[Rfam]
RNA sequence: UAGACAGAUAUUGUAUUCGACUGUAUUCACGAUAUGUAAUUGUGAAUGCAGUAACGUAAAUAGCGCAAAUCAUGGUCUAUUCAGCUGAUUUUAAACGGAAAGUGAAUCAAUUAACACAAUAAACUCCU
Numbered sequence: 001u002a003g004a005c006a007g008a009u010a011u012u013g014u015a016u017u018c019g020a021c022u023g024u025a026u027u028c029a030c031g032a033u034a035u036g037u038a039a040u041u042g043u044g045a046a047u048g049c050a051g052u053a054a055c056g057u058a059a060a061u062a063g064c065g066c067a068a069a070u071c072a073u074g075g076u077c078u079a080u081u082c083a084g085c086u087g088a089u090u091u092u093a094a095a096c097g098g099a100a101a102g103u104g105a106a107u108c109a110a111u112u113a114a115c116a117c118a119a120u121a122a123a124c125u126c127c128u
Stems, first nucleotide, its partner, number of pairs: 003126002009121006016114002019112002022109002025107006033097001035095001036090001039089004

Shown here is a 128-nucleotide RNA from Nicotiana attenuata, a member of the family "MIR6152 microRNA precursor family". It scores 58 bits against the family's covariance model.